[Rfam]
RNA sequence: AAUUCAUUCCAAGCAAUUUUAUUUUCUUUUUUAUUCAGCCCCCACAUUGAGGCGGAUUUUUUGUGUAAAAACGAAAAUGAAAUUAGAAGCCUCCCACUUGGGGGGCUUUUUAUU
Numbered sequence: 001a002a003u004u005c006a007u008u009c010c011a012a013g014c015a016a017u018u019u020u021a022u023u024u025u026c027u028u029u030u031u032u033a034u035u036c037a038g039c040c041c042c043c044a045c046a047u048u049g050a051g052g053c054g055g056a057u058u059u060u061u062u063g064u065g066u067a068a069a070a071a072c073g074a075a076a077a078u079g080a081a082a083u084u085a086g087a088a089g090c091c092u093c094c095c096a097c098u099u100g101g102g103g104g105g106c107u108u109u110u111u112a113u114u
Stems, first nucleotide, its partner, number of pairs: 016083011028071002031068004039052002042049001054062003087108009

Phenylalanine leader peptide: a 114-nucleotide RNA from Shewanella sp. P1-14-1.
For this family Rfam cites "Nucleotide sequence of the leader region of the phenylalanine operon of Escherichia coli" (Zurawski et al., Proc Natl Acad Sci U S A, 1978).